Rfam assigns this 172-nucleotide sequence from Thalassotalea sp. LPB0316 to the family "Lysine riboswitch aptamer". The source organism's lineage runs through Bacteria, Pseudomonadota, Gammaproteobacteria, Alteromonadales and Thalassotalea. The family's consensus secondary structure is taken from published work.
[Rfam]
RNA sequence: AGCUCCAGAAGAGGUGCGAUAGCUAGGUAUGUGAUGUGAAGAACCACAAUUCUCAUGAUCAUGACAGAGGGAGACUAUCGCCGAGAGUUUUGCGCAUGUGGGGCAAUAAACUCGGUCACUGAAGGUUGAAUCCUCAGGACUGUCACCAAUUUGGUGGAGAGCUUCUGGCUGA
Numbered sequence: 001a002g003c004u005c006c007a008g009a010a011g012a013g014g015u016g017c018g019a020u021a022g023c024u025a026g027g028u029a030u031g032u033g034a035u036g037u038g039a040a041g042a043a044c045c046a047c048a049a050u051u052c053u054c055a056u057g058a059u060c061a062u063g064a065c066a067g068a069g070g071g072a073g074a075c076u077a078u079c080g081c082c083g084a085g086a087g088u089u090u091u092g093c094g095c096a097u098g099u100g101g102g103g104c105a106a107u108a109a110a111c112u113c114g115g116u117c118a119c120u121g122a123a124g125g126u127u128g129a130a131u132c133c134u135c136a137g138g139a140c141u142g143u144c145a146c147c148a149a150u151u152u153g154g155u156g157g158a159g160a161g162c163u164u165c166u167g168g169c170u171g172a
Stems, first nucleotide, its partner, number of pairs: 006167006016081007024073001030066003034062003085113005090106004114141004119137004124132001143157006
On this family, see Rodionov et al., Nucleic Acids Res 2003: "Regulation of lysine biosynthesis and transport genes in bacteria: yet another RNA riboswitch?".